[Rfam]
RNA sequence: GCAUGGCUGAAUUCUGUGUUACUUUGUGUGUAGUAAAUACAGUCAGACACCAUGCAACAUUAACUUUCACUCUCUUUUGUGCUACAUUGAGGCCUGAUGUGUGUCUCAUUACAGGAUGGAGAGUGAACACAU
Numbered sequence: 001g002c003a004u005g006g007c008u009g010a011a012u013u014c015u016g017u018g019u020u021a022c023u024u025u026g027u028g029u030g031u032a033g034u035a036a037a038u039a040c041a042g043u044c045a046g047a048c049a050c051c052a053u054g055c056a057a058c059a060u061u062a063a064c065u066u067u068c069a070c071u072c073u074c075u076u077u078u079g080u081g082c083u084a085c086a087u088u089g090a091g092g093c094c095u096g097a098u099g100u101g102u103g104u105c106u107c108a109u110u111a112c113a114g115g116a117u118g119g120a121g122a123g124u125g126a127a128c129a130c131a132u
Base pairs, nucleotide, nucleotide: 001055002054003053004052005051006050014042015041016040017039018038019037068125069124070123071121073119074118076116077115082114083113086110088108089107090106091105092104093103

Background
A member of the RNA family "Small nucleolar RNA SNORA15" from Chanos chanos, 132 nucleotides long. Lineage of the source: Eukaryota > Eumetazoa > Teleostomi > Euteleostomi > Chanos. The base pairs follow the family's consensus structure, which was predicted with RNAfold. ACA15 is a member of the H/ACA class of snoRNA that guide the sites of modification of uridines to pseudouridines.